[Rfam]
RNA sequence: UCAGGGUAAUGACCUAUGAUUUGACAGACUGUGUGUCUAUGUCUGCCUGUCAUUUCUGUAGGCCAAAACCCUCC
Numbered sequence: 001u002c003a004g005g006g007u008a009a010u011g012a013c014c015u016a017u018g019a020u021u022u023g024a025c026a027g028a029c030u031g032u033g034u035g036u037c038u039a040u041g042u043c044u045g046c047c048u049g050u051c052a053u054u055u056c057u058g059u060a061g062g063c064c065a066a067a068a069c070c071c072u073c074c
Stems, first nucleotide, its partner, number of pairs: 003072005010065002013062004018056002022052006029045001031043001